About this RNA:
Shown here is a 114-nucleotide sequence from Alligator sinensis, a member of the family "Potassium channel RNA editing signal". For this family Rfam cites "Control of human potassium channel inactivation by editing of a small mRNA hairpin" (Bhalla et al., Nat Struct Mol Biol, 2004). Rfam classes the family as a cis-regulatory element. About the family: This family represents a group of sequences related to the human potassium channel Kv1.1 hairpin element which directs the efficient modification of an adenosine to inosine by an adenosine deaminase acting on RNA (ADAR). The ADAR modification causes an isoleucine/valine recoding event which lies in the ion-conducting pore of the potassium channel. It is thought that this editing event targets the process of fast inactivation and allows a more rapid recovery from inactivation at negative potentials.
RNA sequence: GUUGGCUAUGGUGACAUGUGCCCUACCACCCCGGGAGGGAAGAUCGUGGGGACUCUGUGUGCUAUUGCAGGGGUAUUAACUAUUGCACUUCCUGUUCCAGUCAUUGUCUCAAAC
Numbered sequence: 001g002u003u004g005g006c007u008a009u010g011g012u013g014a015c016a017u018g019u020g021c022c023c024u025a026c027c028a029c030c031c032c033g034g035g036a037g038g039g040a041a042g043a044u045c046g047u048g049g050g051g052a053c054u055c056u057g058u059g060u061g062c063u064a065u066u067g068c069a070g071g072g073g074u075a076u077u078a079a080c081u082a083u084u085g086c087a088c089u090u091c092c093u094g095u096u097c098c099a100g101u102c103a104u105u106g107u108c109u110c111a112a113a114c
Base pairs, nucleotide, nucleotide: 001114002113005110008107009106010105011104013102014101015100018097020095021094037077038076040074049063050062